[Rfam]
Overview: The family of this 88-nucleotide RNA from Pelosinus fermentans is "c-di-GMP-I riboswitch aptamer". About the family: GEMM was predicted in a large-scale screen for bacterial structured RNA regulatory elements. The base pairs follow the family's consensus structure, which is taken from published work.

RNA sequence: AUAAAUAUUUAGCAAACUCAUCCAAAGGUGGGGACGCAAAGCUAUGGGUCUAAGGGAUUAUAUAUCCUAUGAUUGCCAGGUUGCCGAU
Numbered sequence: 001a002u003a004a005a006u007a008u009u010u011a012g013c014a015a016a017c018u019c020a021u022c023c024a025a026a027g028g029u030g031g032g033g034a035c036g037c038a039a040a041g042c043u044a045u046g047g048g049u050c051u052a053a054g055g056g057a058u059u060a061u062a063u064a065u066c067c068u069a070u071g072a073u074u075g076c077c078a079g080g081u082u083g084c085c086g087a088u
Stems, first nucleotide, its partner, number of pairs: 012037002017032006040082004045078003048073003055067004